[Rfam]
RNA sequence: UUCAAGGAUGAUAAAACCCAACCAGCCGGCUAUUAAGAACAGAUUCACCAAGCGGUGGGUUGUGUGGCCACCCUGUGUUACUGGAUGCACCUAGUUGUUUUCCAUGGCAUAUCUCUCACCGGCUUUGGAGUCUCAACAUAGCUCGUUCUGACUAUGUUGAAGGCCCAAGACCAUCUCGAGAGAACUGGGGUCACUUUAUGUGAUGAGUGUCGGCAUUUUUUAGUCAUAGUUACACUGAGU
Numbered sequence: 001u002u003c004a005a006g007g008a009u010g011a012u013a014a015a016a017c018c019c020a021a022c023c024a025g026c027c028g029g030c031u032a033u034u035a036a037g038a039a040c041a042g043a044u045u046c047a048c049c050a051a052g053c054g055g056u057g058g059g060u061u062g063u064g065u066g067g068c069c070a071c072c073c074u075g076u077g078u079u080a081c082u083g084g085a086u087g088c089a090c091c092u093a094g095u096u097g098u099u100u101u102c103c104a105u106g107g108c109a110u111a112u113c114u115c116u117c118a119c120c121g122g123c124u125u126u127g128g129a130g131u132c133u134c135a136a137c138a139u140a141g142c143u144c145g146u147u148c149u150g151a152c153u154a155u156g157u158u159g160a161a162g163g164c165c166c167a168a169g170a171c172c173a174u175c176u177c178g179a180g181a182g183a184a185c186u187g188g189g190g191u192c193a194c195u196u197u198a199u200g201u202g203a204u205g206a207g208u209g210u211c212g213g214c215a216u217u218u219u220u221u222a223g224u225c226a227u228a229g230u231u232a233c234a235c236u237g238a239g240u
Stems, first nucleotide, its partner, number of pairs: 005227001007225003010022001012020001025214006032208003039201003042061008064194005074111007082104004115189003121172002124169005130164004134159008143151002175180001